[Rfam]
RNA: mir-1302 microRNA precursor family
RNA sequence: UGUUUAGUAUAAGUCAGUCCCAUACAAGAUUUGGGACUGACUUAUACUAAAA
Numbered sequence: 001u002g003u004u005u006a007g008u009a010u011a012a013g014u015c016a017g018u019c020c021c022a023u024a025c026a027a028g029a030u031u032u033g034g035g036a037c038u039g040a041c042u043u044a045u046a047c048u049a050a051a052a
Base pairs, nucleotide, nucleotide: 006048007047008046009045010044011043012042014040015039016038018036019035020034021033022031